[Rfam]
RNA sequence: GGCAGUGACACGGGGUGCCCGCGAGGGCUGAGAACACACCCGUCGAACCUGAUCUAGCUCGUACUAGCGAAGGGAUGUCGCGCGUGACGCGU
Numbered sequence: 001g002g003c004a005g006u007g008a009c010a011c012g013g014g015g016u017g018c019c020c021g022c023g024a025g026g027g028c029u030g031a032g033a034a035c036a037c038a039c040c041c042g043u044c045g046a047a048c049c050u051g052a053u054c055u056a057g058c059u060c061g062u063a064c065u066a067g068c069g070a071a072g073g074g075a076u077g078u079c080g081c082g083c084g085u086g087a088c089g090c091g092u
Base pairs, nucleotide, nucleotide: 006080007079008078009077010076011042012041013040014039016036017028018027019026020025048073049072050071054067055066056065057064